About this RNA
The record is a 71-nucleotide RNA from Haemonchus placei, which matches "mir-5890 microRNA precursor family" in Rfam.
RNA sequence: UUAAUGGCAUAUGACUGAAUUGUGGGAGCAUUAAUAUGAUCCUACCCCUUUUCAUUUUUAUGCUGCUUUGG
Dot-bracket structure: ..(.(((((((.((.((((..(.(((((.((......).).)).))))..)))).)).))))))).)....
The family's consensus secondary structure was predicted with RNAalifold. The match comes from Rfam's covariance-model search (59 bits). Its family is annotated with miRNA-mediated post-transcriptional gene silencing and RISC complex in the Gene Ontology.